[Rfam]
RNA sequence: CCGUGCUAAGCGGGGAGGUAGCGGUGCCCUGUACUCGCAAUCCGCUAUAGCGAGGCUGAAUCCCUUGCCGAGGUAUGGCGACUGUAUGGUCUGCCUUAGUGAAUUGGUGUUGACGUUCAGGUCCUGCGCAACAGGAACCCACGAACCCUGUCAGGUCCGGAAGGAAGCAGCAGUAAGUGGUCAUUCGUGUGUGCCGCGGGGAAGCCUAAGCUGAGCCAUGAAGCUAAGAAGCGCAUAUGGACGUCGUAUCGACGUGAGGUGCACGG
Dot-bracket structure: ((((((..(((((((.(.(...).).))))...(((((...........)))))))).....((((((...(((((..((.(((((((...((.((((((.....(((......(((.((((((((((((.((.((..((((.....((((....(((....)))....))))...))))....)).))))...))))))...)))).)))...))).....))))))...))))))))).))..)))))...)))))).))))))
A member of the RNA family "Bacterial large signal recognition particle RNA" from Oceanobacillus indicireducens, 266 nucleotides long. The family's consensus secondary structure is taken from published work. Clan: SRP clan. By type it is a non-coding RNA gene. On this family, see Rosenblad et al., RNA Biol 2009: "Kinship in the SRP RNA family". About the family: The signal recognition particle (SRP) is a universally conserved ribonucleoprotein involved in the co-translational targeting of proteins to membranes. It scores 217 bits against the family's covariance model.